[Rfam]
RNA sequence: UAACUCUGGAAAGCAUGUGCACCGAAGGAGCAAUUCUAUUCUUAUAGAAGAAUCUCUCAGGUUUAUGACAGAGGUAGA
Numbered sequence: 001u002a003a004c005u006c007u008g009g010a011a012a013g014c015a016u017g018u019g020c021a022c023c024g025a026a027g028g029a030g031c032a033a034u035u036c037u038a039u040u041c042u043u044a045u046a047g048a049a050g051a052a053u054c055u056c057u058c059a060g061g062u063u064u065a066u067g068a069c070a071g072a073g074g075u076a077g078a
Stems, first nucleotide, its partner, number of pairs: 001076002004073005014019001021062003024058002028056003034049004
RNA: Glycine riboswitch aptamer